RNA: Purine riboswitch aptamer
RNA sequence: UAUUUGUUUGUUUAUCCAUUUCGUAUAGCCCCAAUAAACGGUUUGGGGGUUUCUACAAGGUAACCAAAAACCUUACUACGGAAAGGCGUCUUUCAUUA
Numbered sequence: 001u002a003u004u005u006g007u008u009u010g011u012u013u014a015u016c017c018a019u020u021u022c023g024u025a026u027a028g029c030c031c032c033a034a035u036a037a038a039c040g041g042u043u044u045g046g047g048g049g050u051u052u053c054u055a056c057a058a059g060g061u062a063a064c065c066a067a068a069a070a071c072c073u074u075a076c077u078a079c080g081g082a083a084a085g086g087c088g089u090c091u092u093u094c095a096u097u098a
Base pairs, nucleotide, nucleotide: 019083020082021081022080023079024078025077029048030047031046032045033044034043057074058073059072060071061070